[Rfam]
RNA sequence: UCGUUCGGAGGAUAGAGCAAGUCGCUUCACGGCGGCUGGCCGUGAAAUUCGCC
Numbered sequence: 001u002c003g004u005u006c007g008g009a010g011g012a013u014a015g016a017g018c019a020a021g022u023c024g025c026u027u028c029a030c031g032g033c034g035g036c037u038g039g040c041c042g043u044g045a046a047a048u049u050c051g052c053c
Stems, first nucleotide, its partner, number of pairs: 020037007
Dot-bracket structure: ...................(((((((....)))))))................

A member of the RNA family "leuA-Halobacteria RNA" from uncultured archaeon A07HR67, 53 nucleotides long. By type it is a cis-regulatory element. Pairs were carried over by alignment from the consensus structure, which is taken from published work. It is one of the family's seed sequences.